[Rfam]
RNA sequence: UGCCGCUACUUUCUUGGACGUUUCCUCCCUAAACUUGACGGUACUUCGGUGCCGUCUUUUUUUUGCCUAGG
Dot-bracket structure: .........((....))...................((((((((....))))))))...............
Numbered sequence: 001u002g003c004c005g006c007u008a009c010u011u012u013c014u015u016g017g018a019c020g021u022u023u024c025c026u027c028c029c030u031a032a033a034c035u036u037g038a039c040g041g042u043a044c045u046u047c048g049g050u051g052c053c054g055u056c057u058u059u060u061u062u063u064u065g066c067c068u069a070g071g
Stems, first nucleotide, its partner, number of pairs: 010017002037056008
About this RNA
Rfam assigns this 71-nucleotide RNA from Acidisoma silvae to the family "Makes More Granules Regulator RNA (mmgR)". A reference for the family is Lagares et al. (2017), "Regulation of Polyhydroxybutyrate Accumulation in Sinorhizobium meliloti by the Trans-Encoded Small RNA MmgR", J Bacteriol. The match comes from Rfam's covariance-model search (48 bits). Rfam 15.1 lists 1,791 matches to the family in 918 species. The pairing is the family consensus, mapped onto this sequence.